[Rfam]
RNA sequence: CCGCCCGUCACGCCACGGAAGUCGGUCCGGCCGGAAGUCCCCGAGCUAACCGGCUCCUUCGGGAGCCGGAGGCAGGGGCCGAUGGCCGGGCCGGCGACUGGGGCGAAGUCGUAACAAGGUAGCCGUAGGGGAACCUGCGGCUGGAUCACCUCCUUU
Numbered sequence: 001c002c003g004c005c006c007g008u009c010a011c012g013c014c015a016c017g018g019a020a021g022u023c024g025g026u027c028c029g030g031c032c033g034g035a036a037g038u039c040c041c042c043g044a045g046c047u048a049a050c051c052g053g054c055u056c057c058u059u060c061g062g063g064a065g066c067c068g069g070a071g072g073c074a075g076g077g078g079c080c081g082a083u084g085g086c087c088g089g090g091c092c093g094g095c096g097a098c099u100g101g102g103g104c105g106a107a108g109u110c111g112u113a114a115c116a117a118g119g120u121a122g123c124c125g126u127a128g129g130g131g132a133a134c135c136u137g138c139g140g141c142u143g144g145a146u147c148a149c150c151u152c153c154u155u156u
Base pairs, nucleotide, nucleotide: 001118003115006111007110011105012104013103014102016100017099018098021095022094023093024092025091026090027089028088029087030086031085032084037080039078040077041076042075045073046072047071050069051068052067053066054065055064056063057062120143121142122141123140124139125138126137127136128135129134